This 107-nucleotide RNA from Aquimarina spongiae belongs to the Rfam family "SAM riboswitch aptamer (S box leader)". The source organism's lineage runs through Bacteria, Pseudomonadati, Flavobacteriia, Flavobacteriaceae and Aquimarina.

[Rfam]
RNA sequence: AAGUUAUUAAGAAAGGUGGAGGGAAUAGACCCUGUGAAACCUUAGCAACCCUUUAACUAUUAAAGAAGGUGCUAAAUUCUAUCCUGAGAUUCAGGAAAAGAUAACUC
Numbered sequence: 001a002a003g004u005u006a007u008u009a010a011g012a013a014a015g016g017u018g019g020a021g022g023g024a025a026u027a028g029a030c031c032c033u034g035u036g037a038a039a040c041c042u043u044a045g046c047a048a049c050c051c052u053u054u055a056a057c058u059a060u061u062a063a064a065g066a067a068g069g070u071g072c073u074a075a076a077u078u079c080u081a082u083c084c085u086g087a088g089a090u091u092c093a094g095g096a097a098a099a100g101a102u103a104a105c106u107c
Stems, first nucleotide, its partner, number of pairs: 002106007013043005021032003026081004044073004049069002051065004077099001082096006